[Rfam]
RNA: Bacterial RNase P class A
Organism: Peptococcus niger
RNA sequence: UCAGCAGAAAGUGAUCACGGCUUCGGCUGAGGAAAGUCCGGGCACCAUCGGGCAGGAUGCUGGUUAACGGCCAGUGAGGGCAACCUUAAGGAAUAGUGCCACAGAAAGCAAACCGCCUUCGGGUAAGGGUGAAAGGGUGCGGUAAGAGCGCACCGGCGAUUGGGUGAUCAAUCGGCCAGGUAAACCCCAUUCGGUGCAAGACCUAGUAGAAAACAAUAGAGCGGCCCGUUCUGUUUUCGGGUAGGUCGCUUAAGGCGUCGGGUAACCGAUGUCUCAGACAGAUGAUCACUGAUACAGAACCCGGCUUAUUAUCUGCUGAAAAG
Numbered sequence: 001u002c003a004g005c006a007g008a009a010a011g012u013g014a015u016c017a018c019g020g021c022u023u024c025g026g027c028u029g030a031g032g033a034a035a036g037u038c039c040g041g042g043c044a045c046c047a048u049c050g051g052g053c054a055g056g057a058u059g060c061u062g063g064u065u066a067a068c069g070g071c072c073a074g075u076g077a078g079g080g081c082a083a084c085c086u087u088a089a090g091g092a093a094u095a096g097u098g099c100c101a102c103a104g105a106a107a108g109c110a111a112a113c114c115g116c117c118u119u120c121g122g123g124u125a126a127g128g129g130u131g132a133a134a135g136g137g138u139g140c141g142g143u144a145a146g147a148g149c150g151c152a153c154c155g156g157c158g159a160u161u162g163g164g165u166g167a168u169c170a171a172u173c174g175g176c177c178a179g180g181u182a183a184a185c186c187c188c189a190u191u192c193g194g195u196g197c198a199a200g201a202c203c204u205a206g207u208a209g210a211a212a213a214c215a216a217u218a219g220a221g222c223g224g225c226c227c228g229u230u231c232u233g234u235u236u237u238c239g240g241g242u243a244g245g246u247c248g249c250u251u252a253a254g255g256c257g258u259c260g261g262g263u264a265a266c267c268g269a270u271g272u273c274u275c276a277g278a279c280a281g282a283u284g285a286u287c288a289c290u291g292a293u294a295c296a297g298a299a300c301c302c303g304g305c306u307u308a309u310u311a312u313c314u315g316c317u318g319a320a321a322a323g
Stems, first nucleotide, its partner, number of pairs: 001319008009309001010290007018029004034307003038304005043196004050227004055192005060074005075089001076087004090187002096185002098181003113128002115124003136154006156176001157174007200247004209238006218232005254273008